[Rfam]
RNA: narK RNA
Organism: Pseudomonas mosselii
RNA sequence: GGCCCGCCUCUUGCUCAUGCAACCCCGGGUAGCCAACGGCGGUUGCCCCCCAGACCCCGACAAAGACGUCGC
Number, nucleotide and partner (000 for none) at each position: 001g000002g000003c000004c000005c000006g000007c000008c000009u000010c000011u000012u000013g000014c000015u000016c000017a000018u000019g000020c000021a000022a000023c000024c000025c000026c000027g000028g047029g046030u045031a044032g043033c042034c041035a000036a000037c000038g000039g000040c000041g034042g033043u032044u031045g030046c029047c028048c000049c000050c000051c000052a000053g000054a000055c000056c000057c000058c000059g000060a000061c000062a000063a000064a000065g000066a000067c000068g000069u000070c000071g000072c000